A member of the RNA family "Mammalian CPEB3 ribozyme" from Parnassius apollo, 77 nucleotides long. Rfam describes the family as follows. The mammalian CPEB3 ribozyme is a self cleaving RNA located in the second intron of the CPEB3 gene which belongs to a family of genes regulating messenger RNA polyadenylation. The base pairs follow the family's consensus structure, which is taken from published work. The source organism's lineage runs through Eukaryota, Metazoa, Ecdysozoa, Insecta and Parnassius.

[Rfam]
RNA sequence: CGAUAAAAUCCGGGGGUCAUUUUAGAAGCGUGCUCGUCGCGACCCCUGCCAGCCCUUUUCAGGGUUGCAAUUCUACA
Numbered sequence: 001c002g003a004u005a006a007a008a009u010c011c012g013g014g015g016g017u018c019a020u021u022u023u024a025g026a027a028g029c030g031u032g033c034u035c036g037u038c039g040c041g042a043c044c045c046c047u048g049c050c051a052g053c054c055c056u057u058u059u060c061a062g063g064g065u066u067g068c069a070a071u072u073c074u075a076c077a
Stems, first nucleotide, its partner, number of pairs: 013046006021077001023075005028040003050067007